[Rfam]
This 76-nucleotide RNA from Salmo trutta belongs to the Rfam family "Small nucleolar RNA SNORD19". It scores 41 bits against the family's covariance model. A reference for the family is Huttenhofer et al. (2001), "RNomics: an experimental approach that identifies 201 candidates for novel, small, non-messenger RNAs in mouse", EMBO J. Taxonomically the source falls in Salmo (Eukaryota, Eumetazoa, Bilateria, Craniata).

RNA sequence: GUGGAAAUGAGGACAAUAACACAAGUCUGAAUUUCAAGUGAAGACUUCUAAUCCAACUCUGAUCCACUGCUGAGCC
Numbered sequence: 001g002u003g004g005a006a007a008u009g010a011g012g013a014c015a016a017u018a019a020c021a022c023a024a025g026u027c028u029g030a031a032u033u034u035c036a037a038g039u040g041a042a043g044a045c046u047u048c049u050a051a052u053c054c055a056a057c058u059c060u061g062a063u064c065c066a067c068u069g070c071u072g073a074g075c076c
Stems, first nucleotide, its partner, number of pairs: 001067004